[Rfam]
Nucleotides: 223
Base pairs, nucleotide, nucleotide: 007100008099015095016094017093018092026084027083028082029081030080038074040072049071050070051069052068053067054066102136103135104134105133106132107131138149139148140147168186169185170184171183172182191220192219193218194217202216203215204214205213206212
Number, partner (000 for none) and nucleotide at each position: 001000g002000u003000u004000a005000a006000a007100g008099c009000a010000a011000u012000g013000a014000g015095a016094g017093g018092a019000a020000c021000a022000a023000g024000u025000a026084a027083c028082a029081g030080g031000a032000a033000g034000u035000u036000c037000a038074a039000u040072c041000u042000a043000a044000a045000g046000a047000g048000a049071g050070c051069c052068g053067g054066u055000g056000g057000c058000u059000g060000g061000u062000g063000u064000a065000a066054a067053u068052c069051g070050g071049u072040g073000u074038u075000u076000g077000a078000a079000g080030c081029u082028u083027g084026u085000g086000a087000a088000u089000c090000c091000c092018u093017c094016c095015u096000c097000g098000a099008g100007c101000a102136a103135g104134g105133u106132a107131u108000g109000g110000a111000a112000c113000g114000c115000c116000c117000u118000a119000u120000u121000g122000g123000g124000u125000c126000a127000g128000u129000a130000a131107g132106u133105a134104c135103u136102u137000u138149c139148g140147g141000u142000a143000a144000a145000a146000a147140c148139c149138g150000u151000u152000a153000a154000u155000u156000u157000u158000u159000u160000u161000c162000a163000a164000g165000g166000u167000g168186g169185a170184c171183a172182g173000a174000c175000u176000a177000a178000a179000u180000u181000a182172c183171u184170g185169u186168c187000a188000a189000c190000c191220a192219g193218g194217g195000u196000g197000g198000u199000a200000a201000c202216g203215c204214g205213g206212g207000u208000a209000a210000c211000u212206c213205u214204c215203g216202u217194c218193c219192c220191u221000g222000u223000u

This 223-nucleotide sequence from Bacillus sp. OK048 belongs to the Rfam family "T-box leader". Taxonomically the source falls in Bacillus (Bacteria, Bacillota, Bacilli, Caryophanales). Gene Ontology term of the family: tRNA binding. The match comes from Rfam's covariance-model search (135 bits). Pairs were carried over by alignment from the consensus structure, which is taken from published work. It is annotated as a cis-regulatory leader.